Overview:
This 86-nucleotide RNA sequence from Actinomadura sp. WAC 06369 belongs to the Rfam family "ZMP/ZTP riboswitch aptamer (pfl RNA motif)". The match comes from Rfam's covariance-model search (53 bits). The base pairs follow the family's consensus structure, which is taken from published work. Its family is annotated with one-carbon metabolic process and regulation of purine nucleotide biosynthetic process in the Gene Ontology.
[Rfam]
RNA sequence: AUGGGUGUUCGCGACUGGCGCGGGCAAGGUGGAUCACCACCGGGGAGCGAUCGACAGUCCGGACACCGCGCGCCUGGGUGGCCGAG
Dot-bracket structure: ...(.((.((((..(([[[[[.......((((....))))..))..)))).)).)........((((..]]]]]..))))......